RNA sequence: GCCCCGCCCACCCAGUGUUCAGACUACCUGUUCAUGGUGUGCAGGUGAACAGUAGUCCGCACAUUGGUUAGGCUGGAGG
Numbered sequence: 001g002c003c004c005c006g007c008c009c010a011c012c013c014a015g016u017g018u019u020c021a022g023a024c025u026a027c028c029u030g031u032u033c034a035u036g037g038u039g040u041g042c043a044g045g046u047g048a049a050c051a052g053u054a055g056u057c058c059g060c061a062c063a064u065u066g067g068u069u070a071g072g073c074u075g076g077a078g079g
Base pairs, nucleotide, nucleotide: 012067013066014065015064016063017062018061020059022057023056024055025054026053028052029051030050031049033047034046